[Rfam]
RNA sequence: AAAAAGGGCUUCUGUUGUGAGUGGCACCUUUAGGGCAAUGUGAUUGCUCUACAUGCAGAAUCGACAUCAAGCGAUUUCAGAAGCACAAUUUUUUGGUACCUGGGCAGUUAGUGAUCCUUGGUCCUGGCACCUGC
Numbered sequence: 001a002a003a004a005a006g007g008g009c010u011u012c013u014g015u016u017g018u019g020a021g022u023g024g025c026a027c028c029u030u031u032a033g034g035g036c037a038a039u040g041u042g043a044u045u046g047c048u049c050u051a052c053a054u055g056c057a058g059a060a061u062c063g064a065c066a067u068c069a070a071g072c073g074a075u076u077u078c079a080g081a082a083g084c085a086c087a088a089u090u091u092u093u094u095g096g097u098a099c100c101u102g103g104g105c106a107g108u109u110a111g112u113g114a115u116c117c118u119u120g121g122u123c124c125u126g127g128c129a130c131c132u133g134c
Stems, first nucleotide, its partner, number of pairs: 008084005013026005027055001029053001031051008058077005102132003107128005113123004
The record is a 134-nucleotide RNA sequence from Phyllostomus discolor, which matches "U11 spliceosomal RNA" in Rfam.
The match comes from Rfam's covariance-model search (94 bits).
Its Rfam clan is "U1 clan".
NCBI's taxonomy places the organism under Eukaryota, Opisthokonta, Theria, Phyllostomidae, Phyllostomus.